[Rfam]
RNA sequence: CGCUGACUGCGGUAUGCGGCUUCAGCCCGAGCUGAACCCCCUGGCUCCACUUCCCCGGUGCCAGGUGGUGACAUGACUCGGGUUGGGACCGGAUGCCGCAGUCUUUGCUUA
Number, nucleotide and partner (000 for none) at each position: 001c000002g000003c000004u000005g000006a000007c000008u000009g000010c098011g097012g096013u095014a094015u093016g000017c000018g090019g089020c000021u087022u086023c085024a084025g083026c082027c081028c080029g079030a078031g077032c000033u075034g074035a000036a069037c068038c067039c000040c065041c064042u063043g062044g061045c060046u000047c058048c000049a000050c000051u000052u000053c000054c000055c000056c000057g000058g047059u000060g045061c044062c043063a042064g041065g040066u000067g038068g037069u036070g000071a000072c000073a000074u034075g033076a000077c031078u030079c029080g028081g027082g026083u025084u024085g023086g022087g021088a000089c019090c018091g000092g000093a015094u014095g013096c012097c011098g010099c000100a000101g000102u000103c000104u000105u000106u000107g000108c000109u000110u000111a000

Rfam assigns this 111-nucleotide sequence from Propionibacterium freudenreichii to the family "mraW RNA". The family's consensus secondary structure is taken from published work. It scores 62 bits against the family's covariance model. It is annotated as a cis-regulatory element.